[Rfam]
RNA sequence: CCCCACCGCGACCGCGGUGGGGACCAACUACCCAGGUACCUGAUCCGGCCUGGGAG
Numbered sequence: 001c002c003c004c005a006c007c008g009c010g011a012c013c014g015c016g017g018u019g020g021g022g023a024c025c026a027a028c029u030a031c032c033c034a035g036g037u038a039c040c041u042g043a044u045c046c047g048g049c050c051u052g053g054g055a056g
Base pairs, nucleotide, nucleotide: 001022002021003020004019005018006017007016008015009014028056029055031054032053033052034051035050036049037048

This 56-nucleotide RNA from Nocardioides jishulii belongs to the Rfam family "L17-Actino-Proteobacteria ribosomal protein leader". Rfam classes the family as a cis-regulatory leader. For this family Rfam cites "Discovery of 20 novel ribosomal leader candidates in bacteria and archaea" (Eckert and Weinberg, BMC Microbiol, 2020). Taxonomically the source falls in Nocardioides (Bacteria, Actinomycetota, Actinomycetes, Propionibacteriales). The base pairs follow the family's consensus structure, which is taken from published work. A search with the family's covariance model found it, with a score of 47 bits.